Rfam assigns this 53-nucleotide RNA sequence to the family "Mu-gpT-DE RNA". Rfam's curators put it in the seed alignment.
RNA sequence: CCCUGACAGCCACAUAAUGAGGCUGACACUAGCCUCGACAGGAGUAUCACAUG
Numbered sequence: 001c002c003c004u005g006a007c008a009g010c011c012a013c014a015u016a017a018u019g020a021g022g023c024u025g026a027c028a029c030u031a032g033c034c035u036c037g038a039c040a041g042g043a044g045u046a047u048c049a050c051a052u053g
Stems, first nucleotide, its partner, number of pairs: 002042004007025005
Pairs were carried over by alignment from the consensus structure, which is taken from published work.